[Rfam]
RNA sequence: ACCCCCGCCGUGCCGGGGCUUGUGUUGGCACGGAUCCUCCCUGUUGGACCUGGCCCGGGCCUUUGCCCGGGCUCUUUU
Dot-bracket structure: .......(((((((((........)))))))))...................((((((((....))))))))......
This 78-nucleotide RNA sequence from Halovulum dunhuangense belongs to the Rfam family "Singlet oxygen resistance RNA X".
For this family Rfam cites "Regulation of a polyamine transporter by the conserved 3' UTR-derived sRNA SorX confers resistance to singlet oxygen and organic hydroperoxides in Rhodobacter sphaeroides" (Peng et al., RNA Biol, 2016).
It is annotated as a small RNA.
The family has 8 seed sequences and 528 matches in Rfam 15.1.
From the family's description: SorX (RSs2461)like SorY is a singlet oxygen induced sRNA that counteracts oxidative stress by targeting mRNA for a transporter in Rhodobacter. It also has an impact on resistance against organic hydroperoxides. It targets SD sequence of potA mRNA via an aSD sequence.
It scores 58 bits against the family's covariance model.